A member of the RNA family "Glycine riboswitch aptamer" from Pseudonocardia hydrocarbonoxydans, 104 nucleotides long. A search with the family's covariance model found it, with a score of 34 bits.
RNA sequence: CCUCUGGAAAGCGACGUGGGCCCGGCGACGGGGCGGCGUCCGCCGACGGGGAAAGCCUGCGGGUGCGGGUGAAUCUCUCAGGUGCCUUCGGGUGGUGACAGAGG
Numbered sequence: 001c002c003u004c005u006g007g008a009a010a011g012c013g014a015c016g017u018g019g020g021c022c023c024g025g026c027g028a029c030g031g032g033g034c035g036g037c038g039u040c041c042g043c044c045g046a047c048g049g050g051g052a053a054a055g056c057c058u059g060c061g062g063g064u065g066c067g068g069g070u071g072a073a074u075c076u077c078u079c080a081g082g083u084g085c086c087u088u089c090g091g092g093u094g095g096u097g098a099c100a101g102a103g104g
Base pairs, nucleotide, nucleotide: 001104002103003102004101005100006099013040014039015038016037042083043082044081045079046078049077050076051075055070056069057068058067
Dot-bracket structure: ((((((......((((....................)))).(((((..(((...((((........))))....))))).)))...............))))))